[Rfam]
Nucleotides: 104
Stems, first nucleotide, its partner, number of pairs: 006099008019047003049084003052080002056078003062071002
Number, partner (000 for none) and nucleotide at each position: 001000c002000c003000a004000c005000a006099c007098g008097a009096u010095g011094c012093g013092g014000g015000a016000g017000a018000g019047c020046c021045g022000a023000c024000g025000a026000c027000u028000g029000u030000g031000c032000c033000a034000c035000g036000c037000g038000c039000u040000g041000u042000c043000g044000a045021c046020g047019g048000c049084a050083c051082c052080g053079a054000a055000g056078g057077a058076g059000c060000a061000a062071g063070c064000c065000u066000c067000c068000c069000c070063g071062c072000c073000a074000a075000u076058c077057u078056c079053u080052c081000a082051g083050g084049u085000u086000c087000c088000c089000g090000u091000a092013c093012c094011g095010c096009a097008u098007c099006g100000a101000g102000u103000u104000g
The family of this 104-nucleotide RNA from Salinibacterium xinjiangense is "Glycine riboswitch aptamer".
The pairing is the family consensus, mapped onto this sequence.
A search with the family's covariance model found it, with a score of 60 bits.
Rfam links the family to the GO term glycine biosynthetic process.